A member of the RNA family "transfer-messenger RNA" from Erwinia tasmaniensis, 381 nucleotides long. Its Rfam clan is "tRNA clan". Rfam describes the family as follows. Bacterial tmRNA, also known as 10Sa RNA or SsrA, is named for its dual tRNA and mRNA-like properties. Its role is to liberate the mRNA from a stalled ribosome. To accomplish this part of the tmRNA is used as a reading frame that ends in a translation stop signal. The broken mRNA is replaced in the ribosome by the tmRNA and translation of the tmRNA leads to addition of a proteolysis tag to the incomplete protein enabling recognition by a protease. Recently a number of permuted tmRNA genes have been found encoded in two parts. tmRNAs have been identified in eubacteria and some chloroplasts but are absent from archaeal and eukaryote nuclear genomes. By type it is a non-coding RNA gene.
RNA sequence: GGGGCUGAUUCUGGAUUCGACAGGAUUUGCGAAGCCCUAGGAGCAUGCCGAGGGGCGGUUUGCCUCGUUAAAAGCCGCAAAAAAAUAGUCGCAAACGACGAAAACUUCGCACCUGCUGCUUUAGCAGCUUAAUCAGCUUAAUAAACUGAAGGUGUCCUCUCUCCCUAGCCUCCGCUCUUAGGACGGGGAUCAAGAGAGGUCAAAACUAAAAGAGAUCGCGUGGAUGCCUUGCCUGGGGUUGAAGCGUUAAAUCCAAUCAGGCUAGUUUGUUAGUAGCGUGUCCGUUCGCAGCUAACCGGCGAAUGUAAUAACUGGACUAAGCAUGUAGUGCCGACGGUGUAGUAAUUCUGGACGCGGGUUCAACUCCCGCCAGCUCCACCA
Number, nucleotide and partner (000 for none) at each position: 001g377002g376003g375004g374005c373006u372007g371008a000009u000010u000011c000012u000013g000014g000015a000016u000017u000018c000019g000020a000021c350022a349023g348024g347025a346026u345027u344028u000029g000030c000031g000032a000033a000034g338035c337036c336037c000038u334039a000040g332041g331042a000043g000044c325045a324046u323047g322048c321049c067050g066051a065052g064053g063054g000055g078056c077057g076058g075059u074060u073061u000062g000063c053064c052065u051066c050067g049068u000069u000070a000071a000072a000073a060074g059075c058076c057077g056078c055079a000080a000081a000082a000083a000084a000085a000086u000087a000088g000089u000090c000091g000092c000093a000094a000095a000096c000097g000098a000099c000100g000101a000102a000103a000104a000105c000106u000107u000108c000109g000110c000111a000112c000113c000114u000115g000116c000117u000118g000119c000120u000121u141122u140123a139124g137125c136126a000127g134128c000129u000130u000131a000132a000133u000134c127135a000136g125137c124138u000139u123140a122141a121142u000143a000144a000145a000146c000147u000148g000149a000150a000151g000152g000153u000154g000155u000156c199157c198158u197159c196160u195161c194162u000163c188164c187165c186166u185167a000168g000169c182170c181171u180172c000173c000174g000175c214176u213177c212178u211179u210180a171181g170182g169183a000184c000185g166186g165187g164188g163189a000190u000191c000192a000193a000194g161195a160196g159197a158198g157199g156200u000201c000202a000203a000204a000205a000206c000207u000208a000209a000210a179211a178212g177213a176214g175215a000216u000217c000218g000219c246220g245221u244222g000223g000224a000225u000226g000227c000228c000229u000230u000231g262232c261233c260234u259235g258236g000237g000238g000239u000240u000241g000242a000243a000244g221245c220246g219247u000248u000249a000250a000251a000252u000253c000254c000255a000256a000257u000258c235259a234260g233261g232262c231263u000264a000265g300266u299267u298268u000269g296270u295271u294272a293273g292274u000275a000276g289277c288278g287279u000280g317281u316282c315283c314284g312285u311286u310287c278288g277289c276290a000291g000292c273293u272294a271295a270296c269297c000298g267299g266300c265301g000302a000303a000304u000305g000306u000307a000308a000309u000310a286311a285312c284313u000314g283315g282316a281317c280318u000319a000320a000321g048322c047323a046324u045325g044326u000327a000328g000329u000330g000331c041332c040333g000334a038335c000336g036337g035338u034339g000340u000341a000342g000343u000344a027345a026346u025347u024348c023349u022350g021351g000352a000353c000354g370355c369356g368357g367358g366359u000360u000361c000362a000363a000364c000365u000366c358367c357368c356369g355370c354371c007372a006373g005374c004375u003376c002377c001378a000379c000380c000381a000